[Rfam]
RNA: c-di-GMP-I riboswitch aptamer
Organism: Ammoniphilus sp. CFH 90114
RNA sequence: UCAGAUAAAAGGCAAACCUAUUCGAAAGAUAGGGACGCAAAGCCAUGGGUCUACAGCUCAUUAGAGCCACGAUUGCCAGGUUGCCGAU
Numbered sequence: 001u002c003a004g005a006u007a008a009a010a011g012g013c014a015a016a017c018c019u020a021u022u023c024g025a026a027a028g029a030u031a032g033g034g035a036c037g038c039a040a041a042g043c044c045a046u047g048g049g050u051c052u053a054c055a056g057c058u059c060a061u062u063a064g065a066g067c068c069a070c071g072a073u074u075g076c077c078a079g080g081u082u083g084c085c086g087a088u
Base pairs, nucleotide, nucleotide: 012038013037017033018032019031020030022029023028041082042081043080044079046078047077048076049073050072051071056067057066058065059064